[Rfam]
RNA sequence: UAGAACAAUAUAAAUAAGGGAAGUUAGCAAAAUAGAUCUAUAACUUUAGAAAAAGAAUUAGCUCUAAGAGUUGGGUACGUUAGGCCUUAGAGUAAAGCCUUUAGCGCAGAUUAGCACUAGCCUUUAGGUAGGCACCUCUUAGCGCUAGAGUGUUGAAGCCCUUAGCAGGUUUUAGCUGUCUAGCGUACGCUUAACAACCAACUUAGAACUAGUACAGAUAAAAGGAAUCUAACUAUCUAAUUAAAAUAUAGUAUUGUAAUAGCUAGAAAGUAGUAUUAACGUAAUAUAAUUUCUGCCUAGUGCUUUAAAUGUUAAAGCAAAGAGAUUUAACUAAGCGCAGGUAAACAGCAGAAGUAACUAUAACUCUCUUAAAGUAGCUAAAUGCCUUGUUAUCUAAUUAGUAACGCGCAUAAAUAGAUUAACAAGAUUUCUACUAUCUCUAUCUACUAUCUAGCAAAACUACAGCUAAGAGAACAGGCUUAGCAGA
Numbered sequence: 001u002a003g004a005a006c007a008a009u010a011u012a013a014a015u016a017a018g019g020g021a022a023g024u025u026a027g028c029a030a031a032a033u034a035g036a037u038c039u040a041u042a043a044c045u046u047u048a049g050a051a052a053a054a055g056a057a058u059u060a061g062c063u064c065u066a067a068g069a070g071u072u073g074g075g076u077a078c079g080u081u082a083g084g085c086c087u088u089a090g091a092g093u094a095a096a097g098c099c100u101u102u103a104g105c106g107c108a109g110a111u112u113a114g115c116a117c118u119a120g121c122c123u124u125u126a127g128g129u130a131g132g133c134a135c136c137u138c139u140u141a142g143c144g145c146u147a148g149a150g151u152g153u154u155g156a157a158g159c160c161c162u163u164a165g166c167a168g169g170u171u172u173u174a175g176c177u178g179u180c181u182a183g184c185g186u187a188c189g190c191u192u193a194a195c196a197a198c199c200a201a202c203u204u205a206g207a208a209c210u211a212g213u214a215c216a217g218a219u220a221a222a223a224g225g226a227a228u229c230u231a232a233c234u235a236u237c238u239a240a241u242u243a244a245a246a247u248a249u250a251g252u253a254u255u256g257u258a259a260u261a262g263c264u265a266g267a268a269a270g271u272a273g274u275a276u277u278a279a280c281g282u283a284a285u286a287u288a289a290u291u292u293c294u295g296c297c298u299a300g301u302g303c304u305u306u307a308a309a310u311g312u313u314a315a316a317g318c319a320a321a322g323a324g325a326u327u328u329a330a331c332u333a334a335g336c337g338c339a340g341g342u343a344a345a346c347a348g349c350a351g352a353a354g355u356a357a358c359u360a361u362a363a364c365u366c367u368c369u370u371a372a373a374g375u376a377g378c379u380a381a382a383u384g385c386c387u388u389g390u391u392a393u394c395u396a397a398u399u400a401g402u403a404a405c406g407c408g409c410a411u412a413a414a415u416a417g418a419u420u421a422a423c424a425a426g427a428u429u430u431c432u433a434c435u436a437u438c439u440c441u442a443u444c445u446a447c448u449a450u451c452u453a454g455c456a457a458a459a460c461u462a463c464a465g466c467u468a469a470g471a472g473a474a475c476a477g478g479c480u481u482a483g484c485a486g487a
Stems, first nucleotide, its partner, number of pairs: 001453004011446002014443003018439003035059003039055001044049001060210002063207006070198004075188009084166002090160001099150009109140002114135001117132002120129003223432007230424001234248003251287007262274004291418002295349002300346002302342004310337003319328003351367001353365003369373001389405005466483005
Dot-bracket structure: ((((......((.(((.(((..............(((.(....(....).....).)))((.((((((.((((.(((((((((((....(........(((((((((.((...(..((.(((....))).))..)...)).))))))))).........)....)).............)))))))))......))))...)))))).))............((((((((...(((.........)))..(((((((....((((.....))))......)))))))...((..((...((((((....(((......(((....)))......))).))))..)).)).(.(((.......))).).(...)...............(((((.......)))))...........)).....).)))))))....))).))).))...))))............(((((........)))))....
Shown here is a 487-nucleotide part of an RNA from Melanomma pulvis-pyrius, a member of the family "Eukaryotic large subunit ribosomal RNA". The match comes from Rfam's covariance-model search (2400 bits). A reference for the family is Cannone et al. (2002), "The comparative RNA web (CRW) site: an online database of comparative sequence and structure information for ribosomal, intron, and other RNAs", BMC Bioinformatics. Pairs were carried over by alignment from the consensus structure, which is taken from published work. Taxonomically the source falls in Melanomma pulvis-pyrius (Eukaryota, Ascomycota, saccharomyceta, Melanommataceae).